Nucleotides: 106
Stems, first nucleotide, its partner, number of pairs: 002105004012095005018089003022085012035072009045062003049058002
Number, partner (000 for none) and nucleotide at each position: 001000g002105g003104a004103u005102a006000c007000c008000a009000u010000u011000a012095u013094u014093u015092u016091g017000c018089u019088a020087u021000c022085u023084c024083c025082g026081g027080c028079c029078a030077a031076u032075c033074a034000c035072g036071c037070u038069a039068u040067g041066u042065c043064a044000c045062a046061u047060g048000u049058g050057a051000u052000a053000a054000c055000u056000u057050u058049u059000u060047c061046a062045u063000u064043u065042g066041g067040c068039a069038u070037a071036g072035c073000a074033u075032g076031a077030u078029u079028g080027g081026u082025c083024g084023g085022a086000g087020a088019u089018a090000a091016c092015a093014a094013a095012a096000u097000a098000a099000u100000g101000u102005u103004a104003u105002c106000c
This 106-nucleotide sequence from Prunus yedoensis belongs to the Rfam family "MIR6274 microRNA precursor family". Taxonomically the source falls in Prunus yedoensis (Eukaryota, Magnoliopsida, eudicotyledons, Gunneridae).